[Rfam]
RNA sequence: GGGGUUUUACAGAUGAUCGCCGCUGGUUAGCCGAAAGGUAAAUCCAGGGGAGGAAAGUCCGAGCUUCAUAGAGCAACACAAGGGCUAACGGCCCUCUACCGCAAGGUAAGGAACAGUGGAACAGAAAGAAUAUCCGAGGCAUUGAUCUUAGAAGCGGGAACGGGAGCUUUUAGGGGAGCCGGCGGAGUGAAAACAGCUAAACUCUGUGUGAAGCAAGAUCAAAUAGGGAAGCGUAAGUGAACUUCGGUUUGCUUUAAGCACGGCUCGUGUGAGACUUCCGGGUCAGAUCGCUUGAGCGUUUGAGUAAUCAAGCGCCUAGAGGAAUGGUCGUCGAAUCGUGUGUGAGAAUGUGGCAAUCAGCACGAGGAACAGAACUCGGCUUAACGUAAAACCCCGCCA
Numbered sequence: 001g002g003g004g005u006u007u008u009a010c011a012g013a014u015g016a017u018c019g020c021c022g023c024u025g026g027u028u029a030g031c032c033g034a035a036a037g038g039u040a041a042a043u044c045c046a047g048g049g050g051a052g053g054a055a056a057g058u059c060c061g062a063g064c065u066u067c068a069u070a071g072a073g074c075a076a077c078a079c080a081a082g083g084g085c086u087a088a089c090g091g092c093c094c095u096c097u098a099c100c101g102c103a104a105g106g107u108a109a110g111g112a113a114c115a116g117u118g119g120a121a122c123a124g125a126a127a128g129a130a131u132a133u134c135c136g137a138g139g140c141a142u143u144g145a146u147c148u149u150a151g152a153a154g155c156g157g158g159a160a161c162g163g164g165a166g167c168u169u170u171u172a173g174g175g176g177a178g179c180c181g182g183c184g185g186a187g188u189g190a191a192a193a194c195a196g197c198u199a200a201a202c203u204c205u206g207u208g209u210g211a212a213g214c215a216a217g218a219u220c221a222a223a224u225a226g227g228g229a230a231g232c233g234u235a236a237g238u239g240a241a242c243u244u245c246g247g248u249u250u251g252c253u254u255u256a257a258g259c260a261c262g263g264c265u266c267g268u269g270u271g272a273g274a275c276u277u278c279c280g281g282g283u284c285a286g287a288u289c290g291c292u293u294g295a296g297c298g299u300u301u302g303a304g305u306a307a308u309c310a311a312g313c314g315c316c317u318a319g320a321g322g323a324a325u326g327g328u329c330g331u332c333g334a335a336u337c338g339u340g341u342g343u344g345a346g347a348a349u350g351u352g353g354c355a356a357u358c359a360g361c362a363c364g365a366g367g368a369a370c371a372g373a374a375c376u377c378g379g380c381u382u383a384a385c386g387u388a389a390a391a392c393c394c395c396g397c398c399a
Base pairs, nucleotide, nucleotide: 001395002394003393004392005391006390007389008388009387010386012332013331014330015329016328017327018326020050021049023047024046025045026044028042055382056381057380059379060378061377062376063375064213065212066211067210071266072265073264074263076209077208078207079206080205081095082094083093084092085091096110097108098107099106100105111204112203116202117201118198119197133186134185135184136183217289218288219287220286227279228278229277230276231275258270259269260268261267296315297314298313299312300311301310302309303308
This 399-nucleotide sequence from Bdellovibrio sp. belongs to the Rfam family "Bacterial RNase P class A". A search with the family's covariance model found it, with a score of 208 bits. The source organism's lineage runs through Bacteria, Bdellovibrionota, Bdellovibrionia, Bdellovibrionales and Bdellovibrio. For this family Rfam cites "Identification and characterization of small RNAs in Yersinia pestis" (Beauregard et al., RNA Biol, 2013).